This 95-nucleotide sequence from Brachypteracias leptosomus belongs to the Rfam family "Small nucleolar RNA SNORD21". Rfam links the family to the GO terms nucleolus and RNA processing. The base pairs follow the family's consensus structure, which was predicted with PFOLD. Lineage of the source: Eukaryota > Dipnotetrapodomorpha > Coelurosauria > Telluraves > Brachypteracias. The family's RNA type in Rfam is C/D-box small nucleolar RNA.

[Rfam]
RNA sequence: GCUACAUGAUGAUACUCCCAGUGACUGAGCACUGUAGUUGGUCUAUGGUGUGUAGAUGAUGUACUGCGCUGUUUCAAGACGGGACUGAUGGCAGC
Numbered sequence: 001g002c003u004a005c006a007u008g009a010u011g012a013u014a015c016u017c018c019c020a021g022u023g024a025c026u027g028a029g030c031a032c033u034g035u036a037g038u039u040g041g042u043c044u045a046u047g048g049u050g051u052g053u054a055g056a057u058g059a060u061g062u063a064c065u066g067c068g069c070u071g072u073u074u075c076a077a078g079a080c081g082g083g084a085c086u087g088a089u090g091g092c093a094g095c
Base pairs, nucleotide, nucleotide: 001092002091003090004089
Dot-bracket structure: ((((....................................................................................))))...